The family of this 143-nucleotide RNA sequence from Metabacillus harenarius is "FMN riboswitch aptamer (RFN element)".
RNA sequence: AUCAAUCUUCGGGGCAGGGUGUAAUUCCCGACCGGCGGUGAUGAGACAUUUAGUUUGUUUCUAAGUCCGCGAGCCGUUAUUUUAAGGCAGGAUCUGGUGUGACUCCAGAACCGACAGUAUAGUCUGGAUGAGAGAAGAUGGAG
Numbered sequence: 001a002u003c004a005a006u007c008u009u010c011g012g013g014g015c016a017g018g019g020u021g022u023a024a025u026u027c028c029c030g031a032c033c034g035g036c037g038g039u040g041a042u043g044a045g046a047c048a049u050u051u052a053g054u055u056u057g058u059u060u061c062u063a064a065g066u067c068c069g070c071g072a073g074c075c076g077u078u079a080u081u082u083u084a085a086g087g088c089a090g091g092a093u094c095u096g097g098u099g100u101g102a103c104u105c106c107a108g109a110a111c112c113g114a115c116a117g118u119a120u121a122g123u124c125u126g127g128a129u130g131a132g133a134g135a136a137g138a139u140g141g142a143g
Stems, first nucleotide, its partner, number of pairs: 003141001005139006017029003031123002033113002035070004065111002073088003093109005115126003
The family's consensus secondary structure is taken from published work. NCBI's taxonomy places the organism under Bacteria, Bacillati, Bacilli, Bacillaceae, Metabacillus.